[Rfam]
RNA sequence: AAAUGGCCAAUCUGGAUGUGCUCGUUGGUCAUAGACGUCAACACGAACUGUUCAUAUGACUAGAGACACAUUCAGCUUGGCCUGCUU
Number, nucleotide and partner (000 for none) at each position: 001a000002a000003a000004u000005g082006g081007c080008c079009a078010a000011u000012c075013u074014g073015g072016a071017u070018g069019u068020g067021c000022u066023c065024g000025u000026u000027g061028g060029u059030c058031a057032u056033a055034g000035a000036c000037g000038u000039c000040a000041a000042c000043a000044c000045g000046a000047a000048c000049u000050g000051u000052u000053c000054a000055u033056a032057u031058g030059a029060c028061u027062a000063g000064a000065g023066a022067c020068a019069c018070a017071u016072u015073c014074a013075g012076c000077u000078u009079g008080g007081c006082c005083u000084g000085c000086u000087u000
A member of the RNA family "mir-44 microRNA precursor family" from Caenorhabditis elegans, 87 nucleotides long. Gene Ontology terms of the family: RISC complex and miRNA-mediated post-transcriptional gene silencing. The sequence is in the family's curated seed alignment. Pairs were carried over by alignment from the consensus structure, which was predicted with RNAalifold. The source organism's lineage runs through Eukaryota, Protostomia, Chromadorea, Rhabditomorpha and Caenorhabditis. The literature on the family includes a 2009 paper in Genome Res by de Wit et al., "Repertoire and evolution of miRNA genes in four divergent nematode species".